[Rfam]
RNA sequence: GAAUUGUAUUUCGAGCCAGUCGUCAAUUGACAAUGGCACCAACCGAGUGAAGACACCACGGUGGUAAAAAUAAUACGGACUGUCUAGUCAAAUGUGUAUUUGCCG
Numbered sequence: 001g002a003a004u005u006g007u008a009u010u011u012c013g014a015g016c017c018a019g020u021c022g023u024c025a026a027u028u029g030a031c032a033a034u035g036g037c038a039c040c041a042a043c044c045g046a047g048u049g050a051a052g053a054c055a056c057c058a059c060g061g062u063g064g065u066a067a068a069a070a071u072a073a074u075a076c077g078g079a080c081u082g083u084c085u086a087g088u089c090a091a092a093u094g095u096g097u098a099u100u101u102g103c104c105g
Stems, first nucleotide, its partner, number of pairs: 006076005015037004020032001038065003043061003047056002050101003078089004